[Rfam]
Overview:
The family of this 184-nucleotide sequence from Arthrobacter sp. Bz4 is "c-di-AMP riboswitch aptamer (ydaO/yuaA leader)". It scores 58 bits against the family's covariance model.
RNA sequence: CCCUGUCAGCAGCCGGCCCCCAAUUCACCGUGGCAGGGGUGGAGGACCCAUCUUCGGCAGUUUUCUGCCUUGGGGUGCAGCCCUUCGCAAACCACUCUUCCGCUCACUGGAAGAGCAGCAGUGGGCCGAGUCAACUCUUGCUCGAAUCCGACAGCUAACUUCACCGGCGUUGCAGAGAGGCUCC
Numbered sequence: 001c002c003c004u005g006u007c008a009g010c011a012g013c014c015g016g017c018c019c020c021c022a023a024u025u026c027a028c029c030g031u032g033g034c035a036g037g038g039g040u041g042g043a044g045g046a047c048c049c050a051u052c053u054u055c056g057g058c059a060g061u062u063u064u065c066u067g068c069c070u071u072g073g074g075g076u077g078c079a080g081c082c083c084u085u086c087g088c089a090a091a092c093c094a095c096u097c098u099u100c101c102g103c104u105c106a107c108u109g110g111a112a113g114a115g116c117a118g119c120a121g122u123g124g125g126c127c128g129a130g131u132c133a134a135c136u137c138u139u140g141c142u143c144g145a146a147u148c149c150g151a152c153a154g155c156u157a158a159c160u161u162c163a164c165c166g167g168c169g170u171u172g173c174a175g176a177g178a179g180g181c182u183c184c
Base pairs, nucleotide, nucleotide: 012168013167014166018038019037020036039164040163041162042161043160044159049072050071073149074148075147081125082124083123128143129142130141131140